This 67-nucleotide sequence from Nonomuraea aridisoli belongs to the Rfam family "Transposase-2 RNA". A search with the family's covariance model found it, with a score of 50 bits. The family's consensus secondary structure is taken from published work. The family's RNA type in Rfam is small RNA. The family has 151 seed sequences and 214 matches in Rfam 15.1. The source organism's lineage runs through Bacteria, Actinomycetota, Actinomycetes, Streptosporangiales and Nonomuraea.
[Rfam]
RNA sequence: GAAGCGUCAAUCCCGCGCCGGGCGACCGGGCAAGACGGGGACCUUCACCCAGCAAUGGGUGAAUCAC
Numbered sequence: 001g002a003a004g005c006g007u008c009a010a011u012c013c014c015g016c017g018c019c020g021g022g023c024g025a026c027c028g029g030g031c032a033a034g035a036c037g038g039g040g041a042c043c044u045u046c047a048c049c050c051a052g053c054a055a056u057g058g059g060u061g062a063a064u065c066a067c
Base pairs, nucleotide, nucleotide: 011040012039013038014037015036018029019028020027021026044063045062046061047060048059049058050057051056